The family of this 128-nucleotide RNA sequence from Jaculus jaculus is "Small nucleolar RNA SNORA33". NCBI's taxonomy places the organism under Eukaryota, Vertebrata, Mammalia, Glires, Jaculus. The match comes from Rfam's covariance-model search (106 bits). It is annotated as an H/ACA-box small nucleolar RNA. Pairs were carried over by alignment from the consensus structure, which was predicted with PFOLD.
RNA sequence: AAGCCAGCCAAUUAGUCUGCUUAUCUGAAUGUGUUUCUGAGGAAAUGAAGAGAAAGCUGGCAAUAAUGCCACGUUACAAGCCUUAAGGACAACUGAGGCCACUAAGACCCCUGAAAAUGGCUACAAUA
Numbered sequence: 001a002a003g004c005c006a007g008c009c010a011a012u013u014a015g016u017c018u019g020c021u022u023a024u025c026u027g028a029a030u031g032u033g034u035u036u037c038u039g040a041g042g043a044a045a046u047g048a049a050g051a052g053a054a055a056g057c058u059g060g061c062a063a064u065a066a067u068g069c070c071a072c073g074u075u076a077c078a079a080g081c082c083u084u085a086a087g088g089a090c091a092a093c094u095g096a097g098g099c100c101a102c103u104a105a106g107a108c109c110c111c112u113g114a115a116a117a118u119g120g121c122u123a124c125a126a127u128a
Base pairs, nucleotide, nucleotide: 003061004060005059006058007057016043017042018041020039068121069120070119071118080108082106083105084104085103088100090098